RNA: Small nucleolar RNA SNORA28
RNA sequence: AUUUAAAACUUAAUGGUAGACAAAACGGUCUGACACAAUUUGAGCUUGCUAUAGCAGCAAAGUUUUACCUGUUUUGGUGCUCUCUCCUCUGAGACAAGCCGUUAUAUAGACUCAGAUAGU
Numbered sequence: 001a002u003u004u005a006a007a008a009c010u011u012a013a014u015g016g017u018a019g020a021c022a023a024a025a026c027g028g029u030c031u032g033a034c035a036c037a038a039u040u041u042g043a044g045c046u047u048g049c050u051a052u053a054g055c056a057g058c059a060a061a062g063u064u065u066u067a068c069c070u071g072u073u074u075u076g077g078u079g080c081u082c083u084c085u086c087c088u089c090u091g092a093g094a095c096a097a098g099c100c101g102u103u104a105u106a107u108a109g110a111c112u113c114a115g116a117u118a119g120u
Stems, first nucleotide, its partner, number of pairs: 009044003014035002017032005061112005070106003075101004083094004